[Rfam]
RNA sequence: GAUGUGCGAUAGACUCACCUCCACGUGGUGCACCUUGGGCAACGUAUACUCAUACGGCAAAAAAGUCUGU
Numbered sequence: 001g002a003u004g005u006g007c008g009a010u011a012g013a014c015u016c017a018c019c020u021c022c023a024c025g026u027g028g029u030g031c032a033c034c035u036u037g038g039g040c041a042a043c044g045u046a047u048a049c050u051c052a053u054a055c056g057g058c059a060a061a062a063a064a065g066u067c068u069g070u
Stems, first nucleotide, its partner, number of pairs: 001036002004033004017029003043056005

This 70-nucleotide RNA sequence from Rodentolepis nana belongs to the Rfam family "HDV ribozyme from F. prausnitzii". NCBI's taxonomy places the organism under Eukaryota, Bilateria, Eucestoda, Cyclophyllidea, Rodentolepis. The literature on the family includes a 2009 paper in Science by Webb et al., "Widespread occurrence of self-cleaving ribozymes". Gene Ontology term of the family: catalytic activity.